RNA sequence: UAAUUGAAGAGUUUGAUCAUGGCUCAGAUUGAACGCUGGCGGCAGGCCUAACACAUGCAAGUCGAACGGUAACAGGAAUAGCUUGCUAUUUGCUGACGAGUGGCGGACGGGUGAGUAAUGCUUAGGAAUUUGCCUUUUGGAGGGGGAUAACAGUUGGAAACGACUGCUAAUACCGCAUGAUACCUACGGGUCAAAGGGGGCGCUUGCGCUCUCGCCAAGAGAGAAGCCUAAGUGAGAUUAGUUAGUUGGUGGGGUAAUGGCCUACCAAGACGACGAUCUCUAGCUGUUCUGAGAGGAAGAUCAGCCACACUGGGACUGAGACACGGCCCAGACUCCUACGGGAGGCAGCAGUGGGGAAUAUUGCACAAUGGGGGAAACCCUGAUGCAGCCAUGCCGCGUGUGUGAAGAAGGCCUUCGGGUUGUAAAGCACUUUCAGUUGUGAGGAAAGGUUGGUAGUUAAUACCUGCCAGCUGUGACGUUAACAACAGAAGAAGCACCGGCUAACUCCGUGCCAGCAGCCGCGGUAAUACGGAGGGUGCGAGCGUUAAUCGGAAUUACUG
Numbered sequence: 001u002a003a004u005u006g007a008a009g010a011g012u013u014u015g016a017u018c019a020u021g022g023c024u025c026a027g028a029u030u031g032a033a034c035g036c037u038g039g040c041g042g043c044a045g046g047c048c049u050a051a052c053a054c055a056u057g058c059a060a061g062u063c064g065a066a067c068g069g070u071a072a073c074a075g076g077a078a079u080a081g082c083u084u085g086c087u088a089u090u091u092g093c094u095g096a097c098g099a100g101u102g103g104c105g106g107a108c109g110g111g112u113g114a115g116u117a118a119u120g121c122u123u124a125g126g127a128a129u130u131u132g133c134c135u136u137u138u139g140g141a142g143g144g145g146g147a148u149a150a151c152a153g154u155u156g157g158a159a160a161c162g163a164c165u166g167c168u169a170a171u172a173c174c175g176c177a178u179g180a181u182a183c184c185u186a187c188g189g190g191u192c193a194a195a196g197g198g199g200g201c202g203c204u205u206g207c208g209c210u211c212u213c214g215c216c217a218a219g220a221g222a223g224a225a226g227c228c229u230a231a232g233u234g235a236g237a238u239u240a241g242u243u244a245g246u247u248g249g250u251g252g253g254g255u256a257a258u259g260g261c262c263u264a265c266c267a268a269g270a271c272g273a274c275g276a277u278c279u280c281u282a283g284c285u286g287u288u289c290u291g292a293g294a295g296g297a298a299g300a301u302c303a304g305c306c307a308c309a310c311u312g313g314g315a316c317u318g319a320g321a322c323a324c325g326g327c328c329c330a331g332a333c334u335c336c337u338a339c340g341g342g343a344g345g346c347a348g349c350a351g352u353g354g355g356g357a358a359u360a361u362u363g364c365a366c367a368a369u370g371g372g373g374g375a376a377a378c379c380c381u382g383a384u385g386c387a388g389c390c391a392u393g394c395c396g397c398g399u400g401u402g403u404g405a406a407g408a409a410g411g412c413c414u415u416c417g418g419g420u421u422g423u424a425a426a427g428c429a430c431u432u433u434c435a436g437u438u439g440u441g442a443g444g445a446a447a448g449g450u451u452g453g454u455a456g457u458u459a460a461u462a463c464c465u466g467c468c469a470g471c472u473g474u475g476a477c478g479u480u481a482a483c484a485a486c487a488g489a490a491g492a493a494g495c496a497c498c499g500g501c502u503a504a505c506u507c508c509g510u511g512c513c514a515g516c517a518g519c520c521g522c523g524g525u526a527a528u529a530c531g532g533a534g535g536g537u538g539c540g541a542g543c544g545u546u547a548a549u550c551g552g553a554a555u556u557a558c559u560g
Base pairs, nucleotide, nucleotide: 009025010024011023012022013021027550028549029548030547032546033545034544035543036542037541039397040396041395042394043393044392045390046389047355052353053352054351056350057349058348061104062103063102066101067100069097070096076091077090078089079088080087081086111308112307113306120233121232122231123230124229125228126227129225130224134221135220136219137218138217139216140215142176144174145173151166152165153164154163155162156161182191183190184189196213197212198211199210200209201208202207234280235279236278241271242270243269246268247267248266249265250264251263252262253261283305284304285303286302287298288297289296290295310331311330312329313328314327333344334343335342336341361387363386364385365384369382370381371380372379373378400430401429402428403427410421411420412419413418434491436486437485438484439483440482444477451470494539495538496537497536498535505534506533507532508531509530515522516521
RNA: Bacterial small subunit ribosomal RNA, nucleotides 1 to 560
Organism: Alteromonadaceae bacterium M269